[Rfam]
RNA sequence: GUGAGUCGGUGUGUAGGUAUCGGUAAUACUGAGGAAACUCCUCUCUCCUAUCAGGAAUAUGAUGUUGAGAAACAUAUCUAGAGAUAGAUGGCAACGGAGCAGAAACGAUAUCCAGACCUGUUAAUACAAUGAUGAUGAAAAUCUGAGGUUCCAGGAUUAGGAAUGAAACGGUCGUCCCAUAUGGAGCAAGGCCAAAUAGAGUUUAUGAUUGCCUGAUUGAGACUCAGGUAGGCCGCUAAGCUGAAUCCUACUUAAAACAGAAAGAGGGUUACAACCGAGACGC
Number, nucleotide and partner (000 for none) at each position: 001g283002u282003g281004a000005g000006u278007c277008g276009g275010u273011g272012u000013g251014u250015a249016g248017g247018u000019a000020u000021c031022g030023g029024u028025a000026a000027u000028a024029c023030u022031g021032a000033g000034g000035a000036a270037a269038c268039u000040c267041c266042u265043c264044u263045c186046u185047c184048c183049u000050a217051u216052c215053a214054g213055g212056a000057a182058u181059a180060u179061g178062a075063u074064g073065u072066u071067g000068a000069g000070a000071a066072a065073c064074a063075u062076a089077u088078c087079u086080a085081g000082a000083g000084a000085u080086a079087g078088a077089u076090g177091g176092c000093a000094a000095c174096g173097g172098a000099g000100c000101a000102g000103a000104a000105a000106c000107g000108a000109u000110a000111u162112c161113c160114a158115g157116a000117c155118c154119u153120g152121u000122u000123a000124a000125u000126a000127c000128a000129a000130u000131g000132a000133u000134g143135a142136u000137g000138a000139a000140a000141a000142u135143c134144u000145g000146a000147g000148g000149u000150u000151c000152c120153a119154g118155g117156a000157u115158u114159a000160g113161g112162a111163a000164u000165g000166a000167a000168a000169c000170g000171g000172u097173c096174g095175u000176c091177c090178c061179a060180u059181a058182u057183g048184g047185a046186g045187c000188a000189a000190g234191g233192c232193c231194a000195a000196a000197u000198a000199g225200a224201g223202u222203u221204u000205a000206u000207g000208a000209u000210u000211g000212c055213c054214u053215g052216a051217u050218u000219g000220a000221g203222a202223c201224u200225c199226a000227g000228g000229u000230a000231g193232g192233c191234c190235g000236c000237u000238a000239a000240g000241c000242u000243g000244a000245a000246u000247c017248c016249u015250a014251c013252u000253u000254a000255a000256a000257a000258c000259a000260g000261a000262a000263a044264g043265a042266g041267g040268g038269u037270u036271a000272c011273a010274a000275c009276c008277g007278a006279g000280a000281c003282g002283c001
Overview:
The family of this 283-nucleotide RNA from a Nitrososphaerota archaeon is "Archaeal RNase P". Rfam's curators write: Ribonuclease P (RNase P) is a ubiquitous endoribonuclease, found in archaea, bacteria and eukarya as well as chloroplasts and mitochondria. Its best characterised activity is the generation of mature 5'-ends of tRNAs by cleaving the 5'-leader elements of precursor-tRNAs. On this family, see Brown, Nucleic Acids Res 1999: "The Ribonuclease P Database". Rfam links the family to the GO terms multimeric ribonuclease P complex, tRNA processing and ribonuclease P activity. Pairs were carried over by alignment from the consensus structure, which is taken from published work.